[Rfam]
This 306-nucleotide RNA from Candidatus Methanomethylophilus sp. 1R26 belongs to the Rfam family "Archaeal signal recognition particle RNA". Taxonomically the source falls in Methanomethylophilus (Archaea, Thermoplasmatota, Thermoplasmata, Methanomethylophilaceae). Rfam classes the family as a non-coding RNA gene.

RNA sequence: CGUUAGGCUUGGCCGGGGAGCUUGGCGUGCCCUGAACACGCAAUCGUCACAGCGUGGGCGACUGGAGGGGGCGGCGGAGCGGAAACGGCCGGCCCUUCGAACGACGAUGAUACUUUGUCCUGCAGAGUUGGAGUACGCGUCCUUCGUUCCCGGAGGGGAUCGCGGAGCGCGCCAAUCGGGGGGACCGGGCCAGGCCCUGACGGGAGCAGCCUAACCUCGAGCUACCGACGUUUGCGGGGAUACAGGGUUGAGGAGGGAGAUGGAUUACCGGCCGCGGAAGUGACGUCCACCUUUCCGUGCCUAACA
Numbered sequence: 001c002g003u004u005a006g007g008c009u010u011g012g013c014c015g016g017g018g019a020g021c022u023u024g025g026c027g028u029g030c031c032c033u034g035a036a037c038a039c040g041c042a043a044u045c046g047u048c049a050c051a052g053c054g055u056g057g058g059c060g061a062c063u064g065g066a067g068g069g070g071g072c073g074g075c076g077g078a079g080c081g082g083a084a085a086c087g088g089c090c091g092g093c094c095c096u097u098c099g100a101a102c103g104a105c106g107a108u109g110a111u112a113c114u115u116u117g118u119c120c121u122g123c124a125g126a127g128u129u130g131g132a133g134u135a136c137g138c139g140u141c142c143u144u145c146g147u148u149c150c151c152g153g154a155g156g157g158g159a160u161c162g163c164g165g166a167g168c169g170c171g172c173c174a175a176u177c178g179g180g181g182g183g184a185c186c187g188g189g190c191c192a193g194g195c196c197c198u199g200a201c202g203g204g205a206g207c208a209g210c211c212u213a214a215c216c217u218c219g220a221g222c223u224a225c226c227g228a229c230g231u232u233u234g235c236g237g238g239g240a241u242a243c244a245g246g247g248u249u250g251a252g253g254a255g256g257g258a259g260a261u262g263g264a265u266u267a268c269c270g271g272c273c274g275c276g277g278a279a280g281u282g283a284c285g286u287c288c289a290c291c292u293u294u295c296c297g298u299g300c301c302u303a304a305c306a
Base pairs, nucleotide, nucleotide: 002305003304004303005302006301007300008299010061012059013058014057015033016032017031018030020028021027037056038055039054040053041052063297064296065295066294067293068292069291070290073287074286075285076284078281086274087273088272089271090270091269092265094263095262097260098259102255105252112248113247114246115245116244117243118242119238120237121236122235123234124233125232126231127229128228129227130226131225132223133222136171137170138169139168140167142165143164145162146161148159149158150157151156176220177219178218179217180216181215187212188211189210190209195204196203197202
Dot-bracket structure: .(((((((.(.(((((((.((.....)).))))...(((((..........)))))))).).((((((((..((((.(.......(((((((.((.((...(..(......((((((((((((((((((((((..(((((.((.((.((((....)))).)).)).)))))....((((((.....((((....(((....)))....))))..)))))).)).))))).))))))))...)))))))...)..)...)).)).)...))))))......)..))))..)))))))).))))))).